Small nucleolar RNA SNORA15: a 137-nucleotide RNA from Tricholaema leucomelas.
A search with the family's covariance model found it, with a score of 69 bits.

RNA sequence: GCAUGGACGAAUUCUGCAUUAGCUUUCCCUCAGUAGCUAAUGCAGUCAGACACUAUGCCAGAGCAAGCUCCUUUUUCACACCAAUUGGCAGGCUCCUUACAUGAGACGAGGCAUGCCUUUGGAAGAGGGGUACAGAA
Numbered sequence: 001g002c003a004u005g006g007a008c009g010a011a012u013u014c015u016g017c018a019u020u021a022g023c024u025u026u027c028c029c030u031c032a033g034u035a036g037c038u039a040a041u042g043c044a045g046u047c048a049g050a051c052a053c054u055a056u057g058c059c060a061g062a063g064c065a066a067g068c069u070c071c072u073u074u075u076u077c078a079c080a081c082c083a084a085u086u087g088g089c090a091g092g093c094u095c096c097u098u099a100c101a102u103g104a105g106a107c108g109a110g111g112c113a114u115g116c117c118u119u120u121g122g123a124a125g126a127g128g129g130g131u132a133c134a135g136a137a
Base pairs, nucleotide, nucleotide: 001058002057003056004055005054006053014045015044016043017042018041019040069130070129071128072127073126074125075124076123077122084120087117088116089115090114092112093111094110
Record summary
The family's consensus secondary structure was predicted with RNAfold. Taxonomically the source falls in Tricholaema lacrymosa (Eukaryota, Vertebrata, Sarcopterygii, Amniota). About the family: ACA15 is a member of the H/ACA class of snoRNA that guide the sites of modification of uridines to pseudouridines. Rfam links the family to the GO terms RNA processing and nucleolus.